Record summary: Shown here is a 77-nucleotide sequence, a member of the family "DUF3085 RNA". It is one of the family's seed sequences. It is annotated as a cis-regulatory element.

RNA sequence: CGGUAGCUGGACCCACCGGACUCCUCCGAGUCGAACCCAGCCUUCCAAGUCCAUUCAGGACUUUCAACCCACACGGG
Numbered sequence: 001c002g003g004u005a006g007c008u009g010g011a012c013c014c015a016c017c018g019g020a021c022u023c024c025u026c027c028g029a030g031u032c033g034a035a036c037c038c039a040g041c042c043u044u045c046c047a048a049g050u051c052c053a054u055u056c057a058g059g060a061c062u063u064u065c066a067a068c069c070c071a072c073a074c075g076g077g
Stems, first nucleotide, its partner, number of pairs: 001018004006041005019032004049061004